[Rfam]
RNA sequence: UGGCUAUAAAAUAAUUUAUUCUAUAGUCAUUUUGAGUUACGAUAAUUACUAUGUUAAUUUACAAGAUUAUAAUAACUCCUUACUAAGUGGUUUACUAUAACGUUACGGUAAAUAUCCCCAUGUGUUAUAGUAACCCAACUAUCAUAAAUAUGUAUUGACAUUAUUAUAAAUUAGUAUAUAAAAUUAUCGUAAAUGGAGGUGGCUACAGAAUAAGUUAUUUUGUAACCA
Number, nucleotide and partner (000 for none) at each position: 001u228002g227003g226004c000005u224006a223007u222008a221009a220010a219011a218012u217013a216014a215015u214016u213017u212018a211019u210020u209021c208022u207023a000024u205025a204026g203027u202028c201029a200030u199031u198032u197033u196034g000035a000036g000037u192038u191039a190040c189041g188042a187043u186044a185045a184046u183047u182048a000049c000050u178051a177052u176053g175054u174055u173056a172057a171058u170059u169060u168061a167062c000063a000064a000065g165066a164067u163068u000069a161070u160071a000072a000073u000074a155075a000076c000077u000078c000079c000080u147081u146082a145083c000084u000085a000086a000087g142088u141089g140090g139091u138092u137093u132094a131095c130096u129097a128098u127099a126100a125101c124102g123103u122104u000105a000106c000107g117108g116109u000110a000111a000112a000113u000114a000115u000116c108117c107118c000119c000120a000121u000122g103123u102124g101125u100126u099127a098128u097129a096130g095131u094132a093133a000134c000135c000136c000137a092138a091139c090140u089141a088142u087143c000144a000145u082146a081147a080148a000149u000150a000151u000152g000153u000154a000155u074156u000157g000158a000159c000160a070161u069162u000163a067164u066165u065166a000167u061168a060169a059170a058171u057172u056173a055174g054175u053176a052177u051178a050179u000180a000181a000182a047183a046184u045185u044186a043187u042188c041189g040190u039191a038192a037193a000194u000195g000196g033197a032198g031199g030200u029201g028202g027203c026204u025205a024206c000207a022208g021209a020210a019211u018212a017213a016214g015215u014216u013217a012218u011219u010220u009221u008222g007223u006224a005225a000226c003227c002228a001
Rfam assigns this 228-nucleotide sequence from Miscanthus lutarioriparius to the family "MIR6217 microRNA precursor family". Rfam 15.1 lists 2,266 matches to the family in 13 species. Taxonomically the source falls in Miscanthus (Eukaryota, Magnoliopsida, commelinids, Andropogoneae).